The record is a 78-nucleotide RNA from Pseudideonella sakaiensis, which matches "SAH (S-adenosyl-L-homocysteine) riboswitch aptamer" in Rfam. The base pairs follow the family's consensus structure, which is taken from published work. The family has 52 seed sequences and 1,354 matches in Rfam 15.1.
[Rfam]
RNA sequence: GGUUUCGAGGAGCGUUGCAAGGUGCCGCCACGGCAUCCCAGGCUCGAAGCCCCUUCUUUGCAACCGCGCUCACCCGCC
Numbered sequence: 001g002g003u004u005u006c007g008a009g010g011a012g013c014g015u016u017g018c019a020a021g022g023u024g025c026c027g028c029c030a031c032g033g034c035a036u037c038c039c040a041g042g043c044u045c046g047a048a049g050c051c052c053c054u055u056c057u058u059u060g061c062a063a064c065c066g067c068g069c070u071c072a073c074c075c076g077c078c
Base pairs, nucleotide, nucleotide: 002050003049004048005047006046007045008044021037022036023035024034025033026032